This 115-nucleotide RNA from Panicum miliaceum belongs to the Rfam family "Plastid-psbA-1 3UTR RNA". Rfam describes the family as follows. Plastid psbA-1 is a non-coding RNA (ncRNA) present in plastids. It scores 89 bits against the family's covariance model. It is annotated as a cis-regulatory element. The organism belongs to Panicum sect. Panicum, within Eukaryota.
[Rfam]
RNA sequence: UUGAAGUUCCAUCUCUUAAUGGAUAAGAUUUUUCUAAUAACAUAUAGGAAUUUUUGAAGGAAGGAAAGCCAAAAUACCCAAUAUCUUGUUCCAACAGGAUAUUGGGUAUUUCUUU
Numbered sequence: 001u002u003g004a005a006g007u008u009c010c011a012u013c014u015c016u017u018a019a020u021g022g023a024u025a026a027g028a029u030u031u032u033u034c035u036a037a038u039a040a041c042a043u044a045u046a047g048g049a050a051u052u053u054u055u056g057a058a059g060g061a062a063g064g065a066a067a068g069c070c071a072a073a074a075u076a077c078c079c080a081a082u083a084u085c086u087u088g089u090u091c092c093a094a095c096a097g098g099a100u101a102u103u104g105g106g107u108a109u110u111u112c113u114u115u
Base pairs, nucleotide, nucleotide: 008023009022010021011020012019065115066114067113068112072111073110074109075108076107077106079104080103081102083100084099085098086097087096